[Rfam]
RNA sequence: CGGUCGCUCACGUCAACUCCCAAGGGCAGGGGUGGGGGACCCACUUCCGGCGCGUGACGGCCUACGGGGGCCUGACCUGAACGCGUCUCCGGGGUGAAGCCGCGUCCCGCGGCCGGGCACCGAUCGCCCGAACCCGACAGCUCACCUCGCCGGCGGUGAUCGGGAGAUCAU
Numbered sequence: 001c002g003g004u005c006g007c008u009c010a011c012g013u014c015a016a017c018u019c020c021c022a023a024g025g026g027c028a029g030g031g032g033u034g035g036g037g038g039a040c041c042c043a044c045u046u047c048c049g050g051c052g053c054g055u056g057a058c059g060g061c062c063u064a065c066g067g068g069g070g071c072c073u074g075a076c077c078u079g080a081a082c083g084c085g086u087c088u089c090c091g092g093g094g095u096g097a098a099g100c101c102g103c104g105u106c107c108c109g110c111g112g113c114c115g116g117g118c119a120c121c122g123a124u125c126g127c128c129c130g131a132a133c134c135c136g137a138c139a140g141c142u143c144a145c146c147u148c149g150c151c152g153g154c155g156g157u158g159a160u161c162g163g164g165a166g167a168u169c170a171u
Stems, first nucleotide, its partner, number of pairs: 011155004018031003032150006042091001092135003100112004115129004
Rfam assigns this 171-nucleotide RNA sequence from Geodermatophilus nigrescens to the family "c-di-AMP riboswitch aptamer (ydaO/yuaA leader)". This family represents a conserved RNA structure found upstream of the ydaO and yuaA genes in Bacillus subtilis and related genes in other bacteria. The literature on the family includes a 2004 paper in Proc Natl Acad Sci U S A by Barrick et al., "New RNA motifs suggest an expanded scope for riboswitches in bacterial genetic control". The match comes from Rfam's covariance-model search (50 bits). The source organism's lineage runs through Bacteria, Actinomycetes, Geodermatophilales, Geodermatophilaceae and Geodermatophilus.